Annotation:
The family of this 81-nucleotide sequence from Cohnella lubricantis is "ZMP/ZTP riboswitch aptamer (pfl RNA motif)". Lineage of the source: Bacteria > Bacillota > Bacilli > Caryophanales > Cohnella. The match comes from Rfam's covariance-model search (55 bits). Pairs were carried over by alignment from the consensus structure, which is taken from published work.
[Rfam]
RNA sequence: CAAGUCGUGCGUGACUGGCGGAGCAUGGGAUUAACCAUGAGGGAGCGCGCGGGAUACGAGCCGUACGCCUGGGCAGAGGUA
Numbered sequence: 001c002a003a004g005u006c007g008u009g010c011g012u013g014a015c016u017g018g019c020g021g022a023g024c025a026u027g028g029g030a031u032u033a034a035c036c037a038u039g040a041g042g043g044a045g046c047g048c049g050c051g052g053g054a055u056a057c058g059a060g061c062c063g064u065a066c067g068c069c070u071g072g073g074c075a076g077a078g079g080u081a
Stems, first nucleotide, its partner, number of pairs: 005052008015042002017069004025038004060074003
Dot-bracket structure: ....((((((((..(([[[[....((((......))))..))..)))))))).......(((...]]]]..))).......